Annotation
Shown here is a 169-nucleotide RNA sequence from Medicago truncatula, a member of the family "MIR2619 microRNA precursor family". NCBI's taxonomy places the organism under Eukaryota, Viridiplantae, Magnoliopsida, Mesangiospermae, Medicago. Rfam links the family to the GO terms miRNA-mediated post-transcriptional gene silencing and RISC complex. It scores 126 bits against the family's covariance model. The family's consensus secondary structure was predicted with RNAalifold.
[Rfam]
RNA sequence: AAACAGCCCCCUAUGUUUUGAUUCUUUGGCAGUUUUGGACCCCCAGUCCAUUGUUGACUCGGUCAACGCUGACGUGACACCUUAAGUGAGGUGCCACGUGUCAAUUUUUUUUUUUUUUUUGCCUUGGGGGUCCAAAACUGCCAAAGAAUCAAAACAUAGGUGGCUGUUU
Numbered sequence: 001a002a003a004c005a006g007c008c009c010c011c012u013a014u015g016u017u018u019u020g021a022u023u024c025u026u027u028g029g030c031a032g033u034u035u036u037g038g039a040c041c042c043c044c045a046g047u048c049c050a051u052u053g054u055u056g057a058c059u060c061g062g063u064c065a066a067c068g069c070u071g072a073c074g075u076g077a078c079a080c081c082u083u084a085a086g087u088g089a090g091g092u093g094c095c096a097c098g099u100g101u102c103a104a105u106u107u108u109u110u111u112u113u114u115u116u117u118u119u120u121g122c123c124u125u126g127g128g129g130g131u132c133c134a135a136a137a138c139u140g141c142c143a144a145a146g147a148a149u150c151a152a153a154a155c156a157u158a159g160g161u162g163g164c165u166g167u168u169u
Stems, first nucleotide, its partner, number of pairs: 001169002004166005012158034072099002075096002078093005
Dot-bracket structure: ((.(((((...((((((((((((((((((((((((((((((((((..........................((.((.(((((......))))).)).)).........................))))))))))))))))))))))))))))))))))...))))).))